Overview: Small nucleolar RNA SNORA63: a 130-nucleotide RNA sequence from Channa argus. E3 belongs to the H/ACA class of snoRNAs and is involved in the processing of eukaryotic pre-rRNA and has regions of complementarity to 18S rRNA. E3 is encoded in introns in the gene for protein synthesis initiation factor 4AII. Rfam 15.1 lists 1,279 matches to the family in 601 species. The literature on the family includes a 1997 paper in Proc Natl Acad Sci U S A by Mishra and Eliceiri, "Three small nucleolar RNAs that are involved in ribosomal RNA precursor processing". It scores 90 bits against the family's covariance model. Gene Ontology terms of the family: RNA processing and nucleolus. Lineage of the source: Eukaryota > Metazoa > Deuterostomia > Euteleostomi > Channa. Rfam classes the family as an H/ACA-box small nucleolar RNA.
[Rfam]
RNA sequence: AUGCAGGAUAAGUUACAAUGCAUCUUGUCUGGUGCUGCAUUGUCGUUCCCCCUGCAAACAGUAACCUGUUUCCUCGCUAUCCCUGUCUGUCAACAUCAGUGGGCUGCCAGGGACGUAAGGUUUCAUACAC
Numbered sequence: 001a002u003g004c005a006g007g008a009u010a011a012g013u014u015a016c017a018a019u020g021c022a023u024c025u026u027g028u029c030u031g032g033u034g035c036u037g038c039a040u041u042g043u044c045g046u047u048c049c050c051c052c053u054g055c056a057a058a059c060a061g062u063a064a065c066c067u068g069u070u071u072c073c074u075c076g077c078u079a080u081c082c083c084u085g086u087c088u089g090u091c092a093a094c095a096u097c098a099g100u101g102g103g104c105u106g107c108c109a110g111g112g113a114c115g116u117a118a119g120g121u122u123u124c125a126u127a128c129a130c
Stems, first nucleotide, its partner, number of pairs: 003055005015043008024034001082111004087106001089104002